[Rfam]
RNA sequence: UCCUCGCUCAAAGAAUCGCAUUCAAAGCUUACACACAAAGAAGCUUGCUUCUUCUACCUCUUGCUUUGGGAGAAAGUCCCCGGACACCCUGCGCUUUGGUUCGCCAAAGUUGUCCAAGCCAGGCAAUGCGGAAACGCGCCGCCAUAGAAGCAAUUCGAUAGCGGCUUACUGCCCUACUCCCUCCCGGCUCUGCGCACCAUCCGACGGCCUCGCCGGUCACAAUGGGGUGUGUGUUUGGGGUCGGAGAGGGGAAGGGGGACAUUCGUGUCUUCCUUGUAUCGGGUUGCCUUUCGUCGUGGUUCGAUAGUCAUGCGAUUGCCUUUCAUUCUACGGAAUGGGGUAACUCAAUGGGGCUCAUUCUUGAGGCGAGG
Number, nucleotide and partner (000 for none) at each position: 001u000002c371003c370004u369005c368006g367007c366008u364009c363010a362011a361012a000013g000014a317015a316016u315017c314018g313019c312020a000021u000022u070023c068024a067025a066026a065027g064028c063029u000030u000031a000032c000033a000034c000035a000036c000037a000038a053039a052040g051041a050042a049043g048044c000045u000046u000047g000048c043049u042050u041051c040052u039053u038054c000055u000056a000057c000058c000059u000060c000061u000062u000063g028064c027065u026066u025067u024068g023069g000070g022071a000072g000073a000074a000075a355076g354077u000078c353079c352080c351081c350082g000083g000084a000085c000086a000087c000088c000089c000090u000091g000092c000093g000094c109095u108096u107097u106098g105099g104100u000101u000102c000103g000104c099105c098106a097107a096108a095109g094110u000111u000112g000113u000114c000115c000116a000117a000118g000119c000120c000121a000122g000123g000124c000125a000126a000127u000128g000129c000130g000131g000132a000133a000134a000135c000136g000137c000138g000139c000140c000141g000142c000143c000144a000145u000146a000147g000148a000149a000150g000151c000152a000153a000154u000155u000156c000157g000158a000159u000160a000161g000162c000163g000164g000165c000166u000167u000168a000169c000170u000171g000172c000173c000174c000175u000176a000177c000178u000179c000180c000181c000182u000183c000184c000185c000186g000187g000188c000189u000190c000191u000192g000193c000194g000195c000196a000197c000198c000199a000200u000201c000202c000203g000204a000205c000206g288207g287208c286209c000210u000211c000212g284213c283214c282215g000216g280217u000218c000219a277220c276221a275222a274223u000224g000225g000226g000227g000228u000229g000230u000231g000232u000233g000234u000235u000236u000237g000238g000239g000240g000241u000242c000243g000244g000245a000246g000247a000248g000249g000250g000251g000252a000253a000254g000255g000256g000257g000258g000259a000260c000261a000262u000263u000264c000265g000266u000267g000268u000269c000270u000271u000272c000273c000274u222275u221276g220277u219278a000279u000280c216281g000282g214283g213284u212285u000286g208287c207288c206289u000290u000291u000292c000293g000294u000295c000296g000297u000298g000299g000300u000301u000302c000303g000304a000305u000306a000307g000308u000309c000310a000311u000312g019313c018314g017315a016316u015317u014318g000319c340320c339321u338322u337323u000324c000325a000326u000327u000328c000329u000330a000331c000332g000333g000334a000335a000336u000337g322338g321339g320340g319341u000342a000343a000344c000345u000346c000347a000348a000349u000350g081351g080352g079353g078354c076355u075356c000357a000358u000359u000360c000361u011362u010363g009364a008365g000366g007367c006368g005369a004370g003371g002
RNase MRP: a 371-nucleotide sequence from Penicillium cinerascens.
The match comes from Rfam's covariance-model search (122 bits).
The source organism's lineage runs through Eukaryota, Ascomycota, Pezizomycotina, Eurotiales and Penicillium.
RNase MRP is an enzymatically active ribonucleoprotein with two distinct roles in eukaryotes. In mitochondria it plays a direct role in the initiation of mitochondrial DNA replication.